[Rfam]
RNA sequence: UUCUAGCCCAGAUAGCAGUGAAAUCCUUUUCUUUUUUUUCUUUAAAAAAGAAAAGAUUGAAACGAAU
Numbered sequence: 001u002u003c004u005a006g007c008c009c010a011g012a013u014a015g016c017a018g019u020g021a022a023a024u025c026c027u028u029u030u031c032u033u034u035u036u037u038u039u040c041u042u043u044a045a046a047a048a049a050g051a052a053a054a055g056a057u058u059g060a061a062a063c064g065a066a067u
Stems, first nucleotide, its partner, number of pairs: 014067001018063002023057003029052008
Shown here is a 67-nucleotide sequence, a member of the family "Flavo-1 RNA".
The match comes from Rfam's covariance-model search (54 bits).
Pairs were carried over by alignment from the consensus structure, which is taken from published work.